Source information
Shown here is a 133-nucleotide RNA from Castor canadensis, a member of the family "Small nucleolar RNA SNORA84". It is annotated as an H/ACA-box small nucleolar RNA. The source organism's lineage runs through Eukaryota, Chordata, Euteleostomi, Theria and Castor. The literature on the family includes a 2002 paper in Curr Biol by Marker et al., "Experimental RNomics: identification of 140 candidates for small non-messenger RNAs in the plant Arabidopsis thaliana". Pairs were carried over by alignment from the consensus structure, which was predicted with WAR.
[Rfam]
RNA sequence: GCCCUGUGGUUGCUGGAGACUAUUGUUCAGGUAUGACUGUCCAGUGGAUACAGUGGGCUAGAGCAAUCCUGUGAUUUAUGCAUGACUGCUGUUUCUCCUCAGCAGCUGCCAUAGCCCGAUCAUUGGUACAUGG
Dot-bracket structure: ((((..((.((((((((...(((.........)))....)))))))).))....))))..........(.((((((...(((((...((((((.......))))))...))).))..)))))).)........

Description: Rfam 15.1 lists 757 matches to the family in 629 species.